[Rfam]
RNA sequence: GGAUUAAUACUGUUUUGCUAUCUCGAACUAAUAACACAAUGACAUGUGGAAAAAUUAUCCUAUAUGUCAUUGCGUUAUUGGUCAGAGAUAGCAAAAAGUACUAUCC
Numbered sequence: 001g002g003a004u005u006a007a008u009a010c011u012g013u014u015u016u017g018c019u020a021u022c023u024c025g026a027a028c029u030a031a032u033a034a035c036a037c038a039a040u041g042a043c044a045u046g047u048g049g050a051a052a053a054a055u056u057a058u059c060c061u062a063u064a065u066g067u068c069a070u071u072g073c074g075u076u077a078u079u080g081g082u083c084a085g086a087g088a089u090a091g092c093a094a095a096a097a098g099u100a101c102u103a104u105c106c
Stems, first nucleotide, its partner, number of pairs: 002105003006102001013096009023086002027082009037072013051058001